[Rfam]
RNA sequence: UUACGAAAAAGGCACACUUACUGAAAGGUAGGGUCGCAAAGUUAUGAGUCUACGGCAUAGUAAUAUGCUAAGAUUGUCAGACUACCGAA
Numbered sequence: 001u002u003a004c005g006a007a008a009a010a011g012g013c014a015c016a017c018u019u020a021c022u023g024a025a026a027g028g029u030a031g032g033g034u035c036g037c038a039a040a041g042u043u044a045u046g047a048g049u050c051u052a053c054g055g056c057a058u059a060g061u062a063a064u065a066u067g068c069u070a071a072g073a074u075u076g077u078c079a080g081a082c083u084a085c086c087g088a089a
Stems, first nucleotide, its partner, number of pairs: 012037002017032006040083004045079003048074003055068004
A member of the RNA family "c-di-GMP-I riboswitch aptamer" from Orenia metallireducens, 89 nucleotides long. Rfam's curators write: GEMM was predicted in a large-scale screen for bacterial structured RNA regulatory elements. The organism belongs to Orenia, within Bacteria. The base pairs follow the family's consensus structure, which is taken from published work.